[Rfam]
The family of this 103-nucleotide RNA sequence from Raphanus sativus is "Small nucleolar RNA Z279/snoR105/snoR108". The literature on the family includes a 2002 paper in Curr Biol by Marker et al., "Experimental RNomics: identification of 140 candidates for small non-messenger RNAs in the plant Arabidopsis thaliana". NCBI's taxonomy places the organism under Eukaryota, Magnoliopsida, Pentapetalae, Brassicaceae, Raphanus. Its Rfam clan is "snoU13 clan". Gene Ontology terms of the family: RNA processing and nucleolus. Rfam describes the family as follows. This family includes the plant snoRNAs known as Z279, snoR105 and snoR108. It scores 86 bits against the family's covariance model.
RNA sequence: GGGAUAUGAUGAGUGGUAAAUAUUCUCGCUUUAUGAGAGAAGAGCGUUUCGCUCCGCCUGUUACGACAAUUGAGCGCUCUCCUUUGUCUUACCAUCUGAUCCC
Numbered sequence: 001g002g003g004a005u006a007u008g009a010u011g012a013g014u015g016g017u018a019a020a021u022a023u024u025c026u027c028g029c030u031u032u033a034u035g036a037g038a039g040a041a042g043a044g045c046g047u048u049u050c051g052c053u054c055c056g057c058c059u060g061u062u063a064c065g066a067c068a069a070u071u072g073a074g075c076g077c078u079c080u081c082c083u084u085u086g087u088c089u090u091a092c093c094a095u096c097u098g099a100u101c102c103c
Stems, first nucleotide, its partner, number of pairs: 001103004014094005023039005041080008058072001060070002
Dot-bracket structure: ((((.........(((((....(((((.......))))).((((((((.........(.((.......)).))))))))).........))))).....))))